[Rfam]
RNA sequence: UUCAUCGAGGAGCGUUGCGACGGGGGUUCUUCGCCCCGCCAGGCUCGGUGAGGUGUUUUCAAGUACAACGGCGCUCGAUUCAC
Numbered sequence: 001u002u003c004a005u006c007g008a009g010g011a012g013c014g015u016u017g018c019g020a021c022g023g024g025g026g027u028u029c030u031u032c033g034c035c036c037c038g039c040c041a042g043g044c045u046c047g048g049u050g051a052g053g054u055g056u057u058u059u060c061a062a063g064u065a066c067a068a069c070g071g072c073g074c075u076c077g078a079u080u081c082a083c
Base pairs, nucleotide, nucleotide: 002051003050004049005048006047007046008045021038022037023036024035025034
This 83-nucleotide sequence from Methylocaldum marinum belongs to the Rfam family "SAH (S-adenosyl-L-homocysteine) riboswitch aptamer". The match comes from Rfam's covariance-model search (62 bits).